Rfam assigns this 78-nucleotide RNA sequence from Sparus aurata to the family "Small nucleolar RNA SNORD83". Taxonomically the source falls in Sparus (Eukaryota, Opisthokonta, Eurypterygia, Ctenosquamata).
[Rfam]
RNA sequence: GCCACAUGAUGAUUUGAGUGUGUCAGUAGCUCUCUGAGCUGUGAUGACCUGUUCAUCUAUCACCCUUGUCUGAUGGCU
Number, nucleotide and partner (000 for none) at each position: 001g077002c076003c075004a074005c000006a000007u000008g000009a000010u000011g000012a000013u000014u000015u000016g000017a000018g000019u000020g000021u000022g000023u000024c000025a000026g000027u000028a000029g039030c038031u037032c036033u000034c000035u000036g032037a031038g030039c029040u000041g000042u000043g000044a000045u000046g000047a000048c000049c000050u000051g000052u000053u000054c000055a000056u000057c000058u000059a000060u000061c000062a000063c000064c000065c000066u000067u000068g000069u000070c000071u000072g000073a000074u004075g003076g002077c001078u000